[Rfam]
RNA sequence: UGGUGCCCUGAGGCUCCCUGGCUGUCACUCUGUCCCAGCCCCUCCUGGCCUGCUGGGCACAGGCUGAGUCCCAGUAAAGUCUAUUGUGCCUGACCC
Numbered sequence: 001u002g003g004u005g006c007c008c009u010g011a012g013g014c015u016c017c018c019u020g021g022c023u024g025u026c027a028c029u030c031u032g033u034c035c036c037a038g039c040c041c042c043u044c045c046u047g048g049c050c051u052g053c054u055g056g057g058c059a060c061a062g063g064c065u066g067a068g069u070c071c072c073a074g075u076a077a078a079g080u081c082u083a084u085u086g087u088g089c090c091u092g093a094c095c096c
Stems, first nucleotide, its partner, number of pairs: 002095003005089002008086001011082005021075004027069004032064003038058004